[Rfam]
RNA sequence: GCGCCAAUGGUUUAGUGGUAAAAUACAGCUUUGCCAUAAGGAUUAGCUGUGCCGGGGGUUCGAUUCCCCCUUGGCGCA
Numbered sequence: 001g002c003g004c005c006a007a008u009g010g011u012u013u014a015g016u017g018g019u020a021a022a023a024u025a026c027a028g029c030u031u032u033g034c035c036a037u038a039a040g041g042a043u044u045a046g047c048u049g050u051g052c053c054g055g056g057g058g059u060u061c062g063a064u065u066c067c068c069c070c071u072u073g074g075c076g077c078a
Base pairs, nucleotide, nucleotide: 001077002076003075004074005073006072007071010024011023012022013021026049027048028047029046030045054070055069056068057067058066